[Rfam]
Nucleotides: 118
Stems, first nucleotide, its partner, number of pairs: 002034009022051004042073005059102004077096004087114006
Number, partner (000 for none) and nucleotide at each position: 001000u002034c003033a004032u005031u006030c007029a008028c009027u010026g011000g012000u013000c014000g015000g016000u017000u018000a019000a020000c021000a022051g023050u024049a025048g026010c027009g028008g029007u030006g031005a032004a033003u034002g035000u036000u037000u038000a039000a040000a041000c042073c043072c044071c045070c046069u047000a048025c049024u050023a051022u052000g053000g054000g055000a056000a057000a058000g059102a060101c061100a062099a063000g064000g065000a066000a067000g068000c069046a070045g071044g072043g073042g074000u075000a076000c077096g078095g079094g080093u081000g082000g083000c084000g085000a086000a087114g088113u089112u090111a091110g092109c093080g094079c095078c096077c097000u098000a099062u100061u101060g102059u103000c104000g105000a106000a107000c108000g109092g110091c111090u112089g113088a114087c115000g116000a117000g118000u